[Rfam]
RNA sequence: ACUGCGAAAGGGCAAAAUCACCGAAAGGUGAUGGCGCAAAGCUAUGGGUCUAAAGCCGACAGGCCAUGAUUGCCAGGUUGCCGAA
Numbered sequence: 001a002c003u004g005c006g007a008a009a010g011g012g013c014a015a016a017a018u019c020a021c022c023g024a025a026a027g028g029u030g031a032u033g034g035c036g037c038a039a040a041g042c043u044a045u046g047g048g049u050c051u052a053a054a055g056c057c058g059a060c061a062g063g064c065c066a067u068g069a070u071u072g073c074c075a076g077g078u079u080g081c082c083g084a085a
Stems, first nucleotide, its partner, number of pairs: 012037002017032006040079004045075003048070003055064003
Dot-bracket structure: ...........((...((((((....))))))...))..((((.((((((....(((....)))...)))..)))))))......
Rfam assigns this 85-nucleotide RNA sequence from Olavius algarvensis associated proteobacterium Delta 3 to the family "c-di-GMP-I riboswitch aptamer". Its family is annotated with cyclic-di-GMP binding in the Gene Ontology. A reference for the family is Weinberg et al. (2007), "Identification of 22 candidate structured RNAs in bacteria using the CMfinder comparative genomics pipeline", Nucleic Acids Res. A search with the family's covariance model found it, with a score of 80 bits. About the family: GEMM was predicted in a large-scale screen for bacterial structured RNA regulatory elements. Genes associated with GEMM are involved in a diverse array of functions, including chemotaxis regulation, signal transduction, secretion and chitin. Lineage of the source: Bacteria > delta/epsilon subdivisions > Deltaproteobacteria.